[Rfam]
RNA sequence: UCCCUUUCAUCCUCGCGCCAACGCGCCUAUAUUGGGAGCGUUCCCUUCGGGGAACUAUGGCGAUAAACGCGCGUGCAAUAACCAGACCGGACCCGGGUGCGAACCCCGGCGGCUCCACCAAAUCCUCUCGCUCGUUGGGCGGGUCUUGCGGGGCCGAAUUAGGAUCGACGGAUGGCUAAAGACGUUGCUUUCGCCCGAAUGGGCUCCGUCAAAAGCCCGUAAACAGUAGUUGCCAACGACAACUCUGCUGAAGAGUUCGCCCUCGCUGCGUAAGCGGCGCGAGCAACUCGCUUCUUAAGUCCUGUCCUCUAGCAAGGUCAGGCGGGGUUCGGGGGCGCCUGGCAACAGAAGCCCCCACU
Numbered sequence: 001u002c003c004c005u006u007u008c009a010u011c012c013u014c015g016c017g018c019c020a021a022c023g024c025g026c027c028u029a030u031a032u033u034g035g036g037a038g039c040g041u042u043c044c045c046u047u048c049g050g051g052g053a054a055c056u057a058u059g060g061c062g063a064u065a066a067a068c069g070c071g072c073g074u075g076c077a078a079u080a081a082c083c084a085g086a087c088c089g090g091a092c093c094c095g096g097g098u099g100c101g102a103a104c105c106c107c108g109g110c111g112g113c114u115c116c117a118c119c120a121a122a123u124c125c126u127c128u129c130g131c132u133c134g135u136u137g138g139g140c141g142g143g144u145c146u147u148g149c150g151g152g153g154c155c156g157a158a159u160u161a162g163g164a165u166c167g168a169c170g171g172a173u174g175g176c177u178a179a180a181g182a183c184g185u186u187g188c189u190u191u192c193g194c195c196c197g198a199a200u201g202g203g204c205u206c207c208g209u210c211a212a213a214a215g216c217c218c219g220u221a222a223a224c225a226g227u228a229g230u231u232g233c234c235a236a237c238g239a240c241a242a243c244u245c246u247g248c249u250g251a252a253g254a255g256u257u258c259g260c261c262c263u264c265g266c267u268g269c270g271u272a273a274g275c276g277g278c279g280c281g282a283g284c285a286a287c288u289c290g291c292u293u294c295u296u297a298a299g300u301c302c303u304g305u306c307c308u309c310u311a312g313c314a315a316g317g318u319c320a321g322g323c324g325g326g327g328u329u330c331g332g333g334g335g336c337g338c339c340u341g342g343c344a345a346c347a348g349a350a351g352c353c354c355c356c357a358c359u
Base pairs, nucleotide, nucleotide: 040055041054042053043052044051059195060194061193062192063191069188070187071185072184073183074182083174084173087171088170089169093109094108095107096106097105110156111155112154113153114152115151116150196208197207199205202218203217325340326339327338328337331356332355333354334353335352336351
Alphaproteobacteria transfer-messenger RNA: a 359-nucleotide RNA from Marinicauda algicola. Rfam describes the family as follows. Bacterial tmRNA, also known as 10Sa RNA or SsrA, is named for its dual tRNA and mRNA-like properties. Rfam classes the family as a non-coding RNA gene.